[Rfam]
RNA sequence: UGGGAACCGCCGCCUAAUCGUCACCAUCGGCGAGCCGGGGAUCCAAUUCACACUGGGGUGAAUCCGCGACCCAGCGGUAGGGAUUUUCCUUCGUCCCGAACCCGUCAGCUAACCCGGCCGGCGGCCGACGGAAGGAAAU
Numbered sequence: 001u002g003g004g005a006a007c008c009g010c011c012g013c014c015u016a017a018u019c020g021u022c023a024c025c026a027u028c029g030g031c032g033a034g035c036c037g038g039g040g041a042u043c044c045a046a047u048u049c050a051c052a053c054u055g056g057g058g059u060g061a062a063u064c065c066g067c068g069a070c071c072c073a074g075c076g077g078u079a080g081g082g083a084u085u086u087u088c089c090u091u092c093g094u095c096c097c098g099a100a101c102c103c104g105u106c107a108g109c110u111a112a113c114c115c116g117g118c119c120g121g122c123g124g125c126c127g128a129c130g131g132a133a134g135g136a137a138a139u
Stems, first nucleotide, its partner, number of pairs: 011123004018033005034118006044055002056103003064077004080097004

Rfam assigns this 139-nucleotide RNA sequence from Actinoplanes utahensis to the family "c-di-AMP riboswitch aptamer (ydaO/yuaA leader)". The organism belongs to Actinoplanes, within Bacteria. Its family is annotated with cyclic-di-AMP binding and regulation of gene expression in the Gene Ontology. The match comes from Rfam's covariance-model search (94 bits).